Record summary: The record is a 305-nucleotide RNA from Allacma fusca, which matches "Nuclear RNase P" in Rfam.
[Rfam]
RNA sequence: CCUGUUUCACGCCUGCAACUUCAGGGAGUCGCGCACAAACUUUGUGCUUUCACUCCCGGGAAGGUCUGAGUCAAGGGUCAUUUUUGCUUAAGCGGAGCAUCCUUUUAAGUGAGGAGCAGGGUACAAGAAAUACAAAGUGGUUCCUUCCAACUUCUUUUUAUACCUGGGAUAUAGCCUGUAACAUUACAGGUGAAUUGAGGUGACAGAAGUAGUUGGAAUUGAGAAUGCCCUGUGGCCAGCUAAGUAAGUUUAAUUUGCGGGGUGGAUUUGUUUCCAUAACUCAAUUCAGACUACGUUGAGACAGG
Numbered sequence: 001c002c003u004g005u006u007u008c009a010c011g012c013c014u015g016c017a018a019c020u021u022c023a024g025g026g027a028g029u030c031g032c033g034c035a036c037a038a039a040c041u042u043u044g045u046g047c048u049u050u051c052a053c054u055c056c057c058g059g060g061a062a063g064g065u066c067u068g069a070g071u072c073a074a075g076g077g078u079c080a081u082u083u084u085u086g087c088u089u090a091a092g093c094g095g096a097g098c099a100u101c102c103u104u105u106u107a108a109g110u111g112a113g114g115a116g117c118a119g120g121g122u123a124c125a126a127g128a129a130a131u132a133c134a135a136a137g138u139g140g141u142u143c144c145u146u147c148c149a150a151c152u153u154c155u156u157u158u159u160a161u162a163c164c165u166g167g168g169a170u171a172u173a174g175c176c177u178g179u180a181a182c183a184u185u186a187c188a189g190g191u192g193a194a195u196u197g198a199g200g201u202g203a204c205a206g207a208a209g210u211a212g213u214u215g216g217a218a219u220u221g222a223g224a225a226u227g228c229c230c231u232g233u234g235g236c237c238a239g240c241u242a243a244g245u246a247a248g249u250u251u252a253a254u255u256u257g258c259g260g261g262g263u264g265g266a267u268u269u270g271u272u273u274c275c276a277u278a279a280c281u282c283a284a285u286u287c288a289g290a291c292u293a294c295g296u297u298g299a300g301a302c303a304g305g
Stems, first nucleotide, its partner, number of pairs: 001305004007299003012261007024057005037043001066289005076237004085099005100115005116233007141218003262277005

By type it is a ribozyme. From the family's description: Ribonuclease P (RNase P) is a ubiquitous endoribonuclease, found in archaea, bacteria and eukarya as well as chloroplasts and mitochondria.